[Rfam]
RNA sequence: CCCCUUGAUGAUGAAGAAUUGGUGAUGUAUAUCUGCAAUGGUCUAGAUCCAGAAUUUAAUCCUUUAGUCUCUGCUCUUGUAACUAGGGUUGAACCUGUCACCCCCACUGAAUUGUACUCACAAUUACUAAGCUUUGAGA
Numbered sequence: 001c002c003c004c005u006u007g008a009u010g011a012u013g014a015a016g017a018a019u020u021g022g023u024g025a026u027g028u029a030u031a032u033c034u035g036c037a038a039u040g041g042u043c044u045a046g047a048u049c050c051a052g053a054a055u056u057u058a059a060u061c062c063u064u065u066a067g068u069c070u071c072u073g074c075u076c077u078u079g080u081a082a083c084u085a086g087g088g089u090u091g092a093a094c095c096u097g098u099c100a101c102c103c104c105c106a107c108u109g110a111a112u113u114g115u116a117c118u119c120a121c122a123a124u125u126a127c128u129a130a131g132c133u134u135u136g137a138g139a
Stems, first nucleotide, its partner, number of pairs: 004138005088108001090106002
Shown here is a 139-nucleotide RNA from Digitaria exilis, a member of the family "Small nucleolar RNA Z247". The family has 8 seed sequences and 7,071 matches in Rfam 15.1. For this family Rfam cites "The high diversity of snoRNAs in plants: identification and comparative study of 120 snoRNA genes from Oryza sativa" (Chen et al., Nucleic Acids Res, 2003). Lineage of the source: Eukaryota > Poales > Panicodae > Paniceae > Digitaria. Its family is annotated with RNA processing and nucleolus in the Gene Ontology.